The family of this 84-nucleotide sequence from Gorilla gorilla is "mir-548 microRNA precursor family". The source organism's lineage runs through Eukaryota, Bilateria, Boreoeutheria, Haplorrhini and Gorilla gorilla. The family's consensus secondary structure was predicted with WAR.
[Rfam]
RNA sequence: UAUUAGGUUGGGGCAAAAGUCAUUGCGGUUUUUGCCAUUGAAAGUAAUGGCAAAAAAGGCAGUGACUUUUGCCCCAACCUAAUA
Numbered sequence: 001u002a003u004u005a006g007g008u009u010g011g012g013g014c015a016a017a018a019g020u021c022a023u024u025g026c027g028g029u030u031u032u033u034g035c036c037a038u039u040g041a042a043a044g045u046a047a048u049g050g051c052a053a054a055a056a057a058g059g060c061a062g063u064g065a066c067u068u069u070u071g072c073c074c075c076a077a078c079c080u081a082a083u084a
Stems, first nucleotide, its partner, number of pairs: 001084026029056012